[Rfam]
RNA sequence: AACGUCCUGCCUUUCCCGAAGCCUUGCGUUUAUACGUGGGGUAUUGAUGUAGAGAAGGUGGGACGUU
Numbered sequence: 001a002a003c004g005u006c007c008u009g010c011c012u013u014u015c016c017c018g019a020a021g022c023c024u025u026g027c028g029u030u031u032a033u034a035c036g037u038g039g040g041g042u043a044u045u046g047a048u049g050u051a052g053a054g055a056a057g058g059u060g061g062g063a064c065g066u067u
Stems, first nucleotide, its partner, number of pairs: 001067013015054001017052001021042009
This 67-nucleotide sequence belongs to the Rfam family "DUF3800-VIII RNA". The family's RNA type in Rfam is small RNA. Rfam describes the family as follows. Bacteroidetes, Cyanobacteria, Firmicutes, Planctomycetes (1 example), Proteobacteria, Tenericutes (1 example). Rfam's curators put it in the seed alignment.